RNA sequence: UUUUAACUGCCGAGUUUGUCUUUCGGCAAACAUCGUAUAUUAUAUGCCGUUUCUCACUCCGUUGUAAAACGGCGGAAAUUCAUCAAUGCUCGAUUUUUGAUAAAAUCUGCGCUUGAUGAAUUUAUAG
Numbered sequence: 001u002u003u004u005a006a007c008u009g010c011c012g013a014g015u016u017u018g019u020c021u022u023u024c025g026g027c028a029a030a031c032a033u034c035g036u037a038u039a040u041u042a043u044a045u046g047c048c049g050u051u052u053c054u055c056a057c058u059c060c061g062u063u064g065u066a067a068a069a070c071g072g073c074g075g076a077a078a079u080u081c082a083u084c085a086a087u088g089c090u091c092g093a094u095u096u097u098u099g100a101u102a103a104a105a106u107c108u109g110c111g112c113u114u115g116a117u118g119a120a121u122u123u124a125u126a127g
Base pairs, nucleotide, nucleotide: 012034013033014031015030016029017028018027019026020025046073047072048071049070050069051068052067078121079120080119081118082117083116084115085114086113088112089111092107093106094105095104096103097102

The record is a 127-nucleotide sequence from Treponema pedis, which matches "TD-1 RNA" in Rfam.
Lineage of the source: Bacteria > Spirochaetota > Treponemataceae > Treponema > Treponema pedis.
A search with the family's covariance model found it, with a score of 83 bits.
A reference for the family is Weinberg et al. (2007), "Identification of 22 candidate structured RNAs in bacteria using the CMfinder comparative genomics pipeline", Nucleic Acids Res.